[Rfam]
RNA: Archaeal signal recognition particle RNA
Organism: Candidatus Nitrosopelagicus brevis
RNA sequence: UAGUAGGGAGGAUCAGGGUGCCAGCCGUGCCCUAUUCUGAAACCGGCUAUAUGCAGAGAUCAGCAACUGCUGGGUAAAUCUCUAGGAAGGUAACUCCCGCUUGGUGUGCGGAAAUGAAUUCACGCCGAGGCGGGUGGUUGCAGGACAAGGAUAAUCCGAAGGGAUUUUUCCUAAGACCGAACUAUCGAAAGGGAUGAGGUCCGGGAGGGAGCAAUCCUAAGGUGGAGCAUCCACGCUUCCUCGUCUACGUGGGGGAUCUUGUACGCCUUGAAAUGGGACUAUCAUCCUAGACUGGAGCCAGCAGAACUACUA
Numbered sequence: 001u002a003g004u005a006g007g008g009a010g011g012a013u014c015a016g017g018g019u020g021c022c023a024g025c026c027g028u029g030c031c032c033u034a035u036u037c038u039g040a041a042a043c044c045g046g047c048u049a050u051a052u053g054c055a056g057a058g059a060u061c062a063g064c065a066a067c068u069g070c071u072g073g074g075u076a077a078a079u080c081u082c083u084a085g086g087a088a089g090g091u092a093a094c095u096c097c098c099g100c101u102u103g104g105u106g107u108g109c110g111g112a113a114a115u116g117a118a119u120u121c122a123c124g125c126c127g128a129g130g131c132g133g134g135u136g137g138u139u140g141c142a143g144g145a146c147a148a149g150g151a152u153a154a155u156c157c158g159a160a161g162g163g164a165u166u167u168u169u170c171c172u173a174a175g176a177c178c179g180a181a182c183u184a185u186c187g188a189a190a191g192g193g194a195u196g197a198g199g200u201c202c203g204g205g206a207g208g209g210a211g212c213a214a215u216c217c218u219a220a221g222g223u224g225g226a227g228c229a230u231c232c233a234c235g236c237u238u239c240c241u242c243g244u245c246u247a248c249g250u251g252g253g254g255g256a257u258c259u260u261g262u263a264c265g266c267c268u269u270g271a272a273a274u275g276g277g278a279c280u281a282u283c284a285u286c287c288u289a290g291a292c293u294g295g296a297g298c299c300a301g302c303a304g305a306a307c308u309a310c311u312a
Base pairs, nucleotide, nucleotide: 001312002311003310004309005308006307011061012060013059014058015033016032017031018030019029020028021027036057037056038055039054041052067304068303069302070301071300072299073298075296078293083290085288088285090283093280095278096277097276098275099274100270103267104266105265106264107263108262109261110260111259113257115255119253120252121251122250123249124248126243127242128241129240130239132237133236134234135233136232137231139229140228141227143178144177146175147172149170150169151168153166154165155164156163157162182225183224184223185222186221191218192217193216194215195214200209201208202207